[Rfam]
RNA sequence: GGGGAUGAUUUAGGACUCGACGAGAUUCUUGAAACCCAAGGUGCAUGCCGAGGUGACGGCUGGCCUCGUAAAAAGCCGUCAAAGUUAUAGUUGCAAACGACGAUAACUACGCUCUAGCAGCUUAGGCUAGCUAGCCUUCCACCCACGUUUCUCCUAUGGGCAGGGAUUCGGAAGGUCAUUUACAUUUGGAUAGCGAGGGAACCUUGUUCGAGGGUGAACCGCGAAAUAGUAUCGAACUCGCUCUUAGCAAUCCUGUCUGUCGGAGUGUCGAGAGUUAACUAAAAGAUAGACUAAGCAUGUAGUACCGAAGGCGGAGGUUUUUCGGACGGGGGUUCGACUCCCCCCAUCUCCACCA
Numbered sequence: 001g002g003g004g005a006u007g008a009u010u011u012a013g014g015a016c017u018c019g020a021c022g023a024g025a026u027u028c029u030u031g032a033a034a035c036c037c038a039a040g041g042u043g044c045a046u047g048c049c050g051a052g053g054u055g056a057c058g059g060c061u062g063g064c065c066u067c068g069u070a071a072a073a074a075g076c077c078g079u080c081a082a083a084g085u086u087a088u089a090g091u092u093g094c095a096a097a098c099g100a101c102g103a104u105a106a107c108u109a110c111g112c113u114c115u116a117g118c119a120g121c122u123u124a125g126g127c128u129a130g131c132u133a134g135c136c137u138u139c140c141a142c143c144c145a146c147g148u149u150u151c152u153c154c155u156a157u158g159g160g161c162a163g164g165g166a167u168u169c170g171g172a173a174g175g176u177c178a179u180u181u182a183c184a185u186u187u188g189g190a191u192a193g194c195g196a197g198g199g200a201a202c203c204u205u206g207u208u209c210g211a212g213g214g215u216g217a218a219c220c221g222c223g224a225a226a227u228a229g230u231a232u233c234g235a236a237c238u239c240g241c242u243c244u245u246a247g248c249a250a251u252c253c254u255g256u257c258u259g260u261c262g263g264a265g266u267g268u269c270g271a272g273a274g275u276u277a278a279c280u281a282a283a284a285g286a287u288a289g290a291c292u293a294a295g296c297a298u299g300u301a302g303u304a305c306c307g308a309a310g311g312c313g314g315a316g317g318u319u320u321u322u323c324g325g326a327c328g329g330g331g332g333u334u335c336g337a338c339u340c341c342c343c344c345c346a347u348c349u350c351c352a353c354c355a
Stems, first nucleotide, its partner, number of pairs: 001351007021324005028317003036311002041306001044299005049068005055080007114134005120128001135175006141167001143165002147161003152190003156186001193222003206238001208236001240275006247268003251264003255291007328344005
Shown here is a 355-nucleotide sequence from Psychromonas sp. psych-6C06, a member of the family "transfer-messenger RNA". Bacterial tmRNA, also known as 10Sa RNA or SsrA, is named for its dual tRNA and mRNA-like properties. Its role is to liberate the mRNA from a stalled ribosome. The literature on the family includes a 2010 paper in RNA Biol by Mao et al., "Variations on the tmRNA gene". Gene Ontology term of the family: RNA catabolic process. The family's consensus secondary structure is taken from published work. NCBI's taxonomy places the organism under Bacteria, Pseudomonadota, Gammaproteobacteria, Alteromonadales, Psychromonas. A search with the family's covariance model found it, with a score of 224 bits.